RNA sequence: CAUUAAGCAAUACACCGAGUGACAGGGCGCUAAGUGGUCUCCAUAAGCCCUUGUCACCUCGCAGUAGCGACAGGGUAGCGAUUGGAAACGGCGUUGCCUCCCGUGUUUGGAAAGGUGAAUAAUGUUACAGGAU
Numbered sequence: 001c002a003u004u005a006a007g008c009a010a011u012a013c014a015c016c017g018a019g020u021g022a023c024a025g026g027g028c029g030c031u032a033a034g035u036g037g038u039c040u041c042c043a044u045a046a047g048c049c050c051u052u053g054u055c056a057c058c059u060c061g062c063a064g065u066a067g068c069g070a071c072a073g074g075g076u077a078g079c080g081a082u083u084g085g086a087a088a089c090g091g092c093g094u095u096g097c098c099u100c101c102c103g104u105g106u107u108u109g110g111a112a113a114g115g116u117g118a119a120u121a122a123u124g125u126u127a128c129a130g131g132a133u
Stems, first nucleotide, its partner, number of pairs: 003127001011119001013117004019057008029048002034044004059070004073099008082091003100110002
Dot-bracket structure: ..(.......(.((((..((((((((..((...((((...))))..)).)))))))).((((....))))..((((((((.(((....)))))))))))((.......))...)))).).......)......
The record is a 133-nucleotide RNA sequence from Reinekea blandensis, which matches "Molybdenum/Tungsten riboswitch aptamer (Moco RNA motif)" in Rfam. Taxonomically the source falls in Reinekea blandensis (Bacteria, Pseudomonadati, Pseudomonadota, Saccharospirillaceae). It is one of the family's seed sequences. Rfam links the family to the GO terms regulation of gene expression, molybdenum ion binding and tungstate binding.